[Rfam]
RNA: Archaeal large subunit ribosomal RNA, nucleotides 652 to 911
Organism: Methanosphaerula palustris
RNA sequence: GAGUUUAUUCUGUUGGCGAAGGUUAACCCGAAAGGGGAGCCGAAGGGAAACCAACAAGUCUGUAGCCUUCGGGUGUGAGACGGCGUAUUAAAAGUGCGCGGAGUCAGCAGGAUAAGACCCGAAGCCUAGUGAUCUAUGCGUGGGCAGGUUGAAGCGUGACGAAAGUUGCGUGGAGGACCGAAUGGGGUUUUGAUAUGCAAAUCAUUCCCGUGACCUGUGUAUAGGAGUGAAAGAUUAAUCGAACUAGGCAUCCGCUGGUU
Number, nucleotide and partner (000 for none) at each position: 001g000002a000003g000004u000005u115006u114007a113008u112009u111010c110011u109012g108013u107014u106015g105016g104017c103018g000019a000020a000021g041022g040023u039024u038025a000026a000027c035028c034029c000030g000031a000032a000033a000034g028035g027036g000037g000038a024039g023040c022041c021042g000043a000044a000045g052046g051047g000048a000049a000050a000051c046052c045053a000054a000055c000056a000057a000058g081059u080060c079061u078062g000063u000064a000065g074066c073067c072068u000069u000070c000071g000072g067073g066074u065075g000076u000077g000078a061079g060080a059081c058082g000083g000084c098085g097086u096087a095088u000089u000090a000091a000092a000093a000094g000095u087096g086097c085098g084099c000100g000101g000102a000103g017104u016105c015106a014107g013108c012109a011110g010111g009112a008113u007114a006115a005116g000117a000118c258119c257120c000121g255122a000123a000124g000125c248126c247127u246128a245129g244130u243131g000132a000133u000134c224135u223136a222137u221138g220139c219140g218141u217142g216143g215144g214145c212146a000147g179148g178149u177150u176151g000152a000153a000154g171155c170156g169157u168158g167159a166160c165161g000162a000163a000164a000165g160166u159167u158168g157169c156170g155171u154172g000173g000174a000175g000176g150177a149178c148179c147180g000181a000182a000183u000184g209185g208186g207187g206188u000189u000190u204191u000192g203193a202194u000195a000196u000197g000198c000199a000200a000201a000202u193203c192204a190205u000206u187207c186208c185209c184210g000211u000212g145213a000214c144215c143216u142217g141218u140219g139220u138221a137222u136223a135224g134225g000226a236227g235228u234229g000230a000231a000232a000233g000234a228235u227236u226237a000238a000239u000240c000241g000242a000243a130244c129245u128246a127247g126248g125249c000250a000251u000252c000253c000254g000255c121256u000257g119258g118259u000260u000